[Rfam]
RNA sequence: UUUGCUGAGGAGCGCUGCGACCCGCCACCGGGCCAGGCUCAGCAACCGAACAACGGCGCUCGCAAAUC
Numbered sequence: 001u002u003u004g005c006u007g008a009g010g011a012g013c014g015c016u017g018c019g020a021c022c023c024g025c026c027a028c029c030g031g032g033c034c035a036g037g038c039u040c041a042g043c044a045a046c047c048g049a050a051c052a053a054c055g056g057c058g059c060u061c062g063c064a065a066a067u068c
Stems, first nucleotide, its partner, number of pairs: 002045007021032004
A member of the RNA family "SAH (S-adenosyl-L-homocysteine) riboswitch aptamer" from Pseudazoarcus pumilus, 68 nucleotides long. Rfam 15.1 lists 1,354 matches to the family in 1,132 species. The organism belongs to Pseudazoarcus, within Bacteria.